The family of this 171-nucleotide RNA sequence is "malK-I RNA". The family's RNA type in Rfam is cis-regulatory element. Rfam's curators put it in the seed alignment.
[Rfam]
RNA sequence: UCUAUGGUGUCUGCAGCUCUCCAUAACUUAGUUGCAGGCAACCUAAAAAGGAGGAGUUAUUCCCCAUGCUCGGGGUGCGGCAUUGUGGAGACAUGCCGUAAAAGGUGCACGCUUUGCGGCACUGAGGGCAUACGGACGGAGGUCCGGUGUCCGGAGCAGAGAAUUAUGGCA
Numbered sequence: 001u002c003u004a005u006g007g008u009g010u011c012u013g014c015a016g017c018u019c020u021c022c023a024u025a026a027c028u029u030a031g032u033u034g035c036a037g038g039c040a041a042c043c044u045a046a047a048a049a050g051g052a053g054g055a056g057u058u059a060u061u062c063c064c065c066a067u068g069c070u071c072g073g074g075g076u077g078c079g080g081c082a083u084u085g086u087g088g089a090g091a092c093a094u095g096c097c098g099u100a101a102a103a104g105g106u107g108c109a110c111g112c113u114u115u116g117c118g119g120c121a122c123u124g125a126g127g128g129c130a131u132a133c134g135g136a137c138g139g140a141g142g143u144c145c146g147g148u149g150u151c152c153g154g155a156g157c158a159g160a161g162a163a164u165u166a167u168g169g170c171a
Base pairs, nucleotide, nucleotide: 008040009039010038011037012036013035014034015033016032017031018030062075063074064073065072067158068157069156070155071154076100077099078098079097080096081095082094083093085092086091104123105122106121107120108119110118111117112116126152127151128150129149130148131147135144136143137142